L31-Actinobacteria ribosomal protein leader: a 51-nucleotide RNA sequence from Tamaricihabitans halophyticus. The literature on the family includes a 2020 paper in BMC Microbiol by Eckert and Weinberg, "Discovery of 20 novel ribosomal leader candidates in bacteria and archaea". Taxonomically the source falls in Tamaricihabitans (Bacteria, Actinomycetota, Pseudonocardiales, Pseudonocardiaceae). It scores 37 bits against the family's covariance model. The family's RNA type in Rfam is cis-regulatory leader.
[Rfam]
RNA sequence: UGCGCACCGGUUCACCCCGCUCGGGCUAUGGCCUGCGGGGACCCGGCGGCC
Numbered sequence: 001u002g003c004g005c006a007c008c009g010g011u012u013c014a015c016c017c018c019g020c021u022c023g024g025g026c027u028a029u030g031g032c033c034u035g036c037g038g039g040g041a042c043c044c045g046g047c048g049g050c051c
Stems, first nucleotide, its partner, number of pairs: 004050002007046004015040006023032001